[Rfam]
RNA: c-di-GMP-I-GGC riboswitch aptamer
RNA sequence: ACCGACAAAGGCAAACCAGUCGAAAGGCUGGGACGCAAAGCUAAAGGGCCUGUUAUAUGGCAGCCAGCUACCGAAA
Numbered sequence: 001a002c003c004g005a006c007a008a009a010g011g012c013a014a015a016c017c018a019g020u021c022g023a024a025a026g027g028c029u030g031g032g033a034c035g036c037a038a039a040g041c042u043a044a045a046g047g048g049c050c051u052g053u054u055a056u057a058u059g060g061c062a063g064c065c066a067g068c069u070a071c072c073g074a075a076a
Base pairs, nucleotide, nucleotide: 003073004072011036012035016031017030018029019028020027021026034063039069040068041067042066046065047064048061049060050059